[Rfam]
Annotation: Shown here is a 160-nucleotide RNA sequence from Streptomyces sp. ADI96-02, a member of the family "c-di-AMP riboswitch aptamer (ydaO/yuaA leader)".
RNA sequence: GAAUUCCCACCACCCACUCACGCGUGGCAGGAGCGGGGGACCCAGGUAAGCCGCCGGCCCGGAGCGAUCCGGACCGGCUCGGGGUGAAGUCGCGUCCAGCGGCCGGGCAUCUCCAGCCCGAACCCGACAGCUCACCUCGCAGGCGCCGGAGAGGAACAAC
Numbered sequence: 001g002a003a004u005u006c007c008c009a010c011c012a013c014c015c016a017c018u019c020a021c022g023c024g025u026g027g028c029a030g031g032a033g034c035g036g037g038g039g040a041c042c043c044a045g046g047u048a049a050g051c052c053g054c055c056g057g058c059c060c061g062g063a064g065c066g067a068u069c070c071g072g073a074c075c076g077g078c079u080c081g082g083g084g085u086g087a088a089g090u091c092g093c094g095u096c097c098a099g100c101g102g103c104c105g106g107g108c109a110u111c112u113c114c115a116g117c118c119c120g121a122a123c124c125c126g127a128c129a130g131c132u133c134a135c136c137u138c139g140c141a142g143g144c145g146c147c148g149g150a151g152a153g154g155a156a157c158a159a160c
Stems, first nucleotide, its partner, number of pairs: 004032003033140006043081001082125003090102004105119004
The pairing is the family consensus, mapped onto this sequence.
It scores 58 bits against the family's covariance model.